[Rfam]
RNA sequence: CGAACCGCGGCGGGAGAGCCCCGCUGUGCGGGGCGCCGAAGGAGCAACCUCCCCGGGAAUCUCUCAGGCCCCCAGACCGCCGCGGCAAG
Number, nucleotide and partner (000 for none) at each position: 001c000002g000003a000004a000005c000006c084007g083008c082009g081010g080011c079012g078013g077014g000015a000016g000017a000018g000019c033020c032021c031022c030023g000024c000025u000026g000027u000028g000029c000030g022031g021032g020033g019034c000035g069036c068037c067038g065039a064040a000041g000042g063043a062044g061045c000046a000047a000048c056049c055050u000051c000052c000053c000054c000055g049056g048057g000058a000059a000060u000061c044062u043063c042064u039065c038066a000067g037068g036069c035070c000071c000072c000073c000074a000075g000076a000077c013078c012079g011080c010081c009082g008083c007084g006085g000086c000087a000088a000089g000
RNA: Glycine riboswitch aptamer
Organism: Cellulomonas fimi